[Rfam]
A member of the RNA family "L19-Flavobacteria ribosomal protein leader" from Thermaurantimonas aggregans, 28 nucleotides long. Pairs were carried over by alignment from the consensus structure, which is taken from published work. The source organism's lineage runs through Bacteria, Pseudomonadati, Flavobacteriia, Schleiferiaceae and Thermaurantimonas. Rfam classes the family as a cis-regulatory leader. The match comes from Rfam's covariance-model search (40 bits).

RNA sequence: CAACCUCUGGCAAAAAUUGUGUACGUUG
Numbered sequence: 001c002a003a004c005c006u007c008u009g010g011c012a013a014a015a016a017u018u019g020u021g022u023a024c025g026u027u028g
Stems, first nucleotide, its partner, number of pairs: 001028004008023001010020004